[Rfam]
RNA sequence: AGGUGUUCUGUUGUGCUUGAUCUAACCAUGUGGUUCCAAGCUAUGAGUAAAACAUGGUUUCGUCAAGCACCAUGGUACGCCU
Numbered sequence: 001a002g003g004u005g006u007u008c009u010g011u012u013g014u015g016c017u018u019g020a021u022c023u024a025a026c027c028a029u030g031u032g033g034u035u036c037c038a039a040g041c042u043a044u045g046a047g048u049a050a051a052a053c054a055u056g057g058u059u060u061c062g063u064c065a066a067g068c069a070c071c072a073u074g075g076u077a078c079g080c081c082u
Stems, first nucleotide, its partner, number of pairs: 001082006008075002013070007024059008
RNA: mir-218 microRNA precursor family